[Rfam]
The family of this 380-nucleotide part of an RNA from Inmirania thermothiophila is "Bacterial large subunit ribosomal RNA".
RNA sequence: GAUAAAGGGGGUGAAAGGCCCCCUCGCCGAAAGCCCAAGGGUUCCUGCGCAACGCUAAUCGGCGCAGGGUGAGUCGGCCCCUAAGGCGAGGCCGAAAGGCGUAGCCGAUGGGAAACCGGUUAAUAUUCCGGUACCUCGCGUUGCUGCGAUGGGGGGACGGAGAAGGCUAGGUGAUCCGGGUGUUGGACGUCCCGGUUCAAGCGUGUAGGGAGUGUCUCUAGGCAAAUCCGGAGGCACAUAUCCUGAGGCGUGACGACGAGCGCCCCUCGGGGCGCGAAGUCACCGAUGCCAUGCUCCCAGGAAAAGCCUCUAAGCUUCAGGCAGCGCGAGACCGUACCCCAAACCGACACAGGUGGGCAGGGUGAGAAUCCCAAGGCGCU
Numbered sequence: 001g002a003u004a005a006a007g008g009g010g011g012u013g014a015a016a017g018g019c020c021c022c023c024u025c026g027c028c029g030a031a032a033g034c035c036c037a038a039g040g041g042u043u044c045c046u047g048c049g050c051a052a053c054g055c056u057a058a059u060c061g062g063c064g065c066a067g068g069g070u071g072a073g074u075c076g077g078c079c080c081c082u083a084a085g086g087c088g089a090g091g092c093c094g095a096a097a098g099g100c101g102u103a104g105c106c107g108a109u110g111g112g113a114a115a116c117c118g119g120u121u122a123a124u125a126u127u128c129c130g131g132u133a134c135c136u137c138g139c140g141u142u143g144c145u146g147c148g149a150u151g152g153g154g155g156g157a158c159g160g161a162g163a164a165g166g167c168u169a170g171g172u173g174a175u176c177c178g179g180g181u182g183u184u185g186g187a188c189g190u191c192c193c194g195g196u197u198c199a200a201g202c203g204u205g206u207a208g209g210g211a212g213u214g215u216c217u218c219u220a221g222g223c224a225a226a227u228c229c230g231g232a233g234g235c236a237c238a239u240a241u242c243c244u245g246a247g248g249c250g251u252g253a254c255g256a257c258g259a260g261c262g263c264c265c266c267u268c269g270g271g272g273c274g275c276g277a278a279g280u281c282a283c284c285g286a287u288g289c290c291a292u293g294c295u296c297c298c299a300g301g302a303a304a305a306g307c308c309u310c311u312a313a314g315c316u317u318c319a320g321g322c323a324g325c326g327c328g329a330g331a332c333c334g335u336a337c338c339c340c341a342a343a344c345c346g347a348c349a350c351a352g353g354u355g356g357g358c359a360g361g362g363u364g365a366g367a368a369u370c371c372c373a374a375g376g377c378g379c380u
Stems, first nucleotide, its partner, number of pairs: 006024006025378004033358004039338002044068006053061002075334003080111002085106003089102001091100003115132005135330011146315002151310004159297004165290003170284005176195005197256002201251004208244003213236007221229002260275005344353002360372003
Dot-bracket structure: .....((((((.......))))))((((....((((..((...((((((...((.....)).))))))......(((..((...(((.(.(((....))).).)))...))...(((((........)))))..(((((((((((((...((((....((((..(((..(((((.(((((..........))))).((..((((...(((..(((((((.((.....))))))))).....)))...))))...))...(((((......)))))....)))))...)))...)))).........))))...))....))))))))))).)))..)).....((......)).)))).(((.......)))..))))..